Shown here is a 174-nucleotide RNA from Paenibacillus sp. UNCCL117, a member of the family "SAM riboswitch aptamer (S box leader)".

[Rfam]
RNA sequence: CUCUUAUCAAGAGCAGGUUGAGGGACUAGCCCGAUGAUACCCGGCAACCGACACAAGAUGGCGUUAGCUCACCCCUCGCGGUGAUGCGGCGGCUGCCAGCUUGUGCACGGUGCUAAUUCUUGCGGAGCCUUUUACUGGGGAGCUUCUCCAGGCAAAGAUUCUGACAGAUGAGAG
Numbered sequence: 001c002u003c004u005u006a007u008c009a010a011g012a013g014c015a016g017g018u019u020g021a022g023g024g025a026c027u028a029g030c031c032c033g034a035u036g037a038u039a040c041c042c043g044g045c046a047a048c049c050g051a052c053a054c055a056a057g058a059u060g061g062c063g064u065u066a067g068c069u070c071a072c073c074c075c076u077c078g079c080g081g082u083g084a085u086g087c088g089g090c091g092g093c094u095g096c097c098a099g100c101u102u103g104u105g106c107a108c109g110g111u112g113c114u115a116a117u118u119c120u121u122g123c124g125g126a127g128c129c130u131u132u133u134a135c136u137g138g139g140g141a142g143c144u145u146c147u148c149c150a151g152g153c154a155a156a157g158a159u160u161c162u163g164a165c166a167g168a169u170g171a172g173a174g
Stems, first nucleotide, its partner, number of pairs: 001174008013042001016041003022032003026122001028120002043114004048110002052105006118166001123163005